[Rfam]
RNA: MIR7502 microRNA precursor family
RNA sequence: GGUUAAAAAUUCCAUCCAUUUCUAUUGGUAAAAACUGGCGUGGCUGAUGUAAUAACUAGGCAUUGACACUACCUCGUGUUGAUGUAUAUAGACAAGUUUUAAACAAUAGAAAUAGAUUAAAUUUUAACA
Numbered sequence: 001g002g003u004u005a006a007a008a009a010u011u012c013c014a015u016c017c018a019u020u021u022c023u024a025u026u027g028g029u030a031a032a033a034a035c036u037g038g039c040g041u042g043g044c045u046g047a048u049g050u051a052a053u054a055a056c057u058a059g060g061c062a063u064u065g066a067c068a069c070u071a072c073c074u075c076g077u078g079u080u081g082a083u084g085u086a087u088a089u090a091g092a093c094a095a096g097u098u099u100u101a102a103a104c105a106a107u108a109g110a111a112a113u114a115g116a117u118u119a120a121a122u123u124u125u126a127a128c129a
Base pairs, nucleotide, nucleotide: 002128003127004126005125006124007123008122010121011120014117015116016115018113019112020111021110022109023108024107025106026105029102031100032099033098